The family of this 132-nucleotide sequence from Ictidomys tridecemlineatus is "Small nucleolar RNA SNORA61". The organism belongs to Ictidomys, within Eukaryota. About the family: ACA61 is a member of the H/ACA class of snoRNA that guide the sites of modification of uridines to pseudouridines.
RNA sequence: AACCUCUCAUUCCCUUUCUCAUCAGCUCUGAACACUGGUCUUGGUGUUGGCAAAAGAAGGACAAAUUAUACUGAAGUUGACCUCAAAGUUUUGCAGUUUGGUACAUAGUAUGUGAGCUAAUUUCAAGCAGGG
Numbered sequence: 001a002a003c004c005u006c007u008c009a010u011u012c013c014c015u016u017u018c019u020c021a022u023c024a025g026c027u028c029u030g031a032a033c034a035c036u037g038g039u040c041u042u043g044g045u046g047u048u049g050g051c052a053a054a055a056g057a058a059g060g061a062c063a064a065a066u067u068a069u070a071c072u073g074a075a076g077u078u079g080a081c082c083u084c085a086a087a088g089u090u091u092u093g094c095a096g097u098u099u100g101g102u103a104c105a106u107a108g109u110a111u112g113u114g115a116g117c118u119a120a121u122u123u124c125a126a127g128c129a130g131g132g
Base pairs, nucleotide, nucleotide: 003060004059005058006056020046021045022044023043025040027038028037077120078119079118081116083114092110093109094108
The family has 25 seed sequences and 881 matches in Rfam 15.1. The base pairs follow the family's consensus structure, which was predicted with PFOLD.